[Rfam]
RNA sequence: GCUGGUGCUGUAAACAUCCCCGACUGGAAGCUGUGCCACCCCGAGCUUUCAGUCAGAUGUUUGCGGCACCCGC
Numbered sequence: 001g002c003u004g005g006u007g008c009u010g011u012a013a014a015c016a017u018c019c020c021c022g023a024c025u026g027g028a029a030g031c032u033g034u035g036c037c038a039c040c041c042c043g044a045g046c047u048u049u050c051a052g053u054c055a056g057a058u059g060u061u062u063g064c065g066g067c068a069c070c071c072g073c
Base pairs, nucleotide, nucleotide: 002072004070005069006068008066009065010064011063012062013061014060015059016058017057018056023053024052025051026050027049028048029047030046031045032044
RNA: mir-30 microRNA precursor family
Organism: Halcyon senegalensis